Rfam assigns this 84-nucleotide sequence from Desulfosporosinus acididurans to the family "c-di-GMP-I-GGC riboswitch aptamer". NCBI's taxonomy places the organism under Bacteria, Bacillota, Clostridia, Eubacteriales, Desulfosporosinus.
RNA sequence: GACGAUAAAGGCAAACUUGGCGAAAGCCAAGGACGCAAAGCUAUGGGUCUUCCAGUUAAGCUGAUGACUGCCAAGCUUCCGAAA
Numbered sequence: 001g002a003c004g005a006u007a008a009a010g011g012c013a014a015a016c017u018u019g020g021c022g023a024a025a026g027c028c029a030a031g032g033a034c035g036c037a038a039a040g041c042u043a044u045g046g047g048u049c050u051u052c053c054a055g056u057u058a059a060g061c062u063g064a065u066g067a068c069u070g071c072c073a074a075g076c077u078u079c080c081g082a083a084a
Stems, first nucleotide, its partner, number of pairs: 003081002011036002016031006034070001039077004044073003047068003